[Rfam]
Annotation
The record is an 84-nucleotide RNA from Cercocebus atys, which matches "mir-548 microRNA precursor family" in Rfam. It scores 98 bits against the family's covariance model. Pairs were carried over by alignment from the consensus structure, which was predicted with WAR. For this family Rfam cites "Ultra-high throughput sequencing-based small RNA discovery and discrete statistical biomarker analysis in a collection of cervical tumours and matched controls" (Witten et al., BMC Biol, 2010). Rfam links the family to the GO terms miRNA-mediated post-transcriptional gene silencing and RISC complex.

RNA sequence: UAUUAUGUUGGUGCAAAAGUUAUUGCGGUUUUUGCCAUUGAGAGUAAUGGCAAAAACCGCAAUAACUUUUGCACCAACCUAGUA
Numbered sequence: 001u002a003u004u005a006u007g008u009u010g011g012u013g014c015a016a017a018a019g020u021u022a023u024u025g026c027g028g029u030u031u032u033u034g035c036c037a038u039u040g041a042g043a044g045u046a047a048u049g050g051c052a053a054a055a056a057c058c059g060c061a062a063u064a065a066c067u068u069u070u071g072c073a074c075c076a077a078c079c080u081a082g083u084a
Stems, first nucleotide, its partner, number of pairs: 001084005007078034